[Rfam]
RNA: Lysine riboswitch aptamer
RNA sequence: AGUGGUGAUAGAGGUGCGAAAGUCAAAAGUAUCCGUGCAGAGGAAGAUGAAAUCCGCUGAAGCAUAGGAAAAAGGGACAAUCGCCGAAGUAAUGAACUGUUCAUCCGGUUGAUUACUGGUUCUGCAUUUAAUAGAUGCAGAGCUGUCAAGAUGCUUUAGCAUCUUGGAGAGCUAUCUCACCU
Numbered sequence: 001a002g003u004g005g006u007g008a009u010a011g012a013g014g015u016g017c018g019a020a021a022g023u024c025a026a027a028a029g030u031a032u033c034c035g036u037g038c039a040g041a042g043g044a045a046g047a048u049g050a051a052a053u054c055c056g057c058u059g060a061a062g063c064a065u066a067g068g069a070a071a072a073a074g075g076g077a078c079a080a081u082c083g084c085c086g087a088a089g090u091a092a093u094g095a096a097c098u099g100u101u102c103a104u105c106c107g108g109u110u111g112a113u114u115a116c117u118g119g120u121u122c123u124g125c126a127u128u129u130a131a132u133a134g135a136u137g138c139a140g141a142g143c144u145g146u147c148a149a150g151a152u153g154c155u156u157u158a159g160c161a162u163c164u165u166g167g168a169g170a171g172c173u174a175u176c177u178c179a180c181c182u
Stems, first nucleotide, its partner, number of pairs: 007176005016084004022078003032069003035065004088117006095110005118144011146167007